[Rfam]
RNA sequence: GCCCGAUUGAUCGUCGUUGGUACGGCGUGCAGGCUUCAAGGAUGUAAGUAGGGUCUAUACGAGGGCACCUGUAGAUCGCGAAGGCGAUAGAGGUUCGAUUCCUCCUAGCGGGC
Numbered sequence: 001g002c003c004c005g006a007u008u009g010a011u012c013g014u015c016g017u018u019g020g021u022a023c024g025g026c027g028u029g030c031a032g033g034c035u036u037c038a039a040g041g042a043u044g045u046a047a048g049u050a051g052g053g054u055c056u057a058u059a060c061g062a063g064g065g066c067a068c069c070u071g072u073a074g075a076u077c078g079c080g081a082a083g084g085c086g087a088u089a090g091a092g093g094u095u096c097g098a099u100u101c102c103u104c105c106u107a108g109c110g111g112g113c
Stems, first nucleotide, its partner, number of pairs: 001113005007107001009105001012027006028073006075088005090104004

This 113-nucleotide RNA from Hypsibius exemplaris belongs to the Rfam family "Selenocysteine transfer RNA". The organism belongs to Hypsibius, within Eukaryota. Pairs were carried over by alignment from the consensus structure, which is taken from published work.